[Rfam]
Source information:
The family of this 153-nucleotide sequence from Virgibacillus necropolis is "FMN riboswitch aptamer (RFN element)". Its family is annotated with FMN binding in the Gene Ontology.

RNA sequence: UAAUUCCUUCGGGGUCGGGUGAAAUUCCCAAUCGGCGGUGAUGAAGUAUCUUGCUUCUUAGUCCGUGACCCGUGCGGUUAUUCCUAUAACCAAGCGGUGGAUCUGGUGAAACUCCAGAGCCGACAGUUAAAGUCUGGAUGGGAGAAGGGAUUU
Numbered sequence: 001u002a003a004u005u006c007c008u009u010c011g012g013g014g015u016c017g018g019g020u021g022a023a024a025u026u027c028c029c030a031a032u033c034g035g036c037g038g039u040g041a042u043g044a045a046g047u048a049u050c051u052u053g054c055u056u057c058u059u060a061g062u063c064c065g066u067g068a069c070c071c072g073u074g075c076g077g078u079u080a081u082u083c084c085u086a087u088a089a090c091c092a093a094g095c096g097g098u099g100g101a102u103c104u105g106g107u108g109a110a111a112c113u114c115c116a117g118a119g120c121c122g123a124c125a126g127u128u129a130a131a132g133u134c135u136g137g138a139u140g141g142g143a144g145a146a147g148g149g150a151u152u153u
Base pairs, nucleotide, nucleotide: 003151004150005149006148007147008146009145010144017029018028019027031133032132033122034121035066036065037064038063061120062119070097071096072095073094102118103117104116105115106114124136125135126134
The source organism's lineage runs through Bacteria, Bacillati, Bacillota, Caryophanales and Virgibacillus.